[Rfam]
RNA sequence: UGAAAUACAACUGUCAUCAACGUCAAGUGCUGGCGUUGAUGGUCCCGAGUUCUCCUGGCGCGUCCUUGAUGCCGCGGGUGUAUCCUCCCUCUCCCGUUGGCGAUGCGCCCCCUUGCCUCGCUCGUCGCAUGCGACGUAGCGAGGCCUUUU
Numbered sequence: 001u002g003a004a005a006u007a008c009a010a011c012u013g014u015c016a017u018c019a020a021c022g023u024c025a026a027g028u029g030c031u032g033g034c035g036u037u038g039a040u041g042g043u044c045c046c047g048a049g050u051u052c053u054c055c056u057g058g059c060g061c062g063u064c065c066u067u068g069a070u071g072c073c074g075c076g077g078g079u080g081u082a083u084c085c086u087c088c089c090u091c092u093c094c095c096g097u098u099g100g101c102g103a104u105g106c107g108c109c110c111c112c113u114u115g116c117c118u119c120g121c122u123c124g125u126c127g128c129a130u131g132c133g134a135c136g137u138a139g140c141g142a143g144g145c146c147u148u149u150u
Base pairs, nucleotide, nucleotide: 057109058108059107060106061105062104063103064102074097075096076095077094078093080091115145116144117143118142119141120140121139122138126136127135
RNA: Rhizobiales sRNA Atu_C7
Organism: Ciceribacter sp. L1K22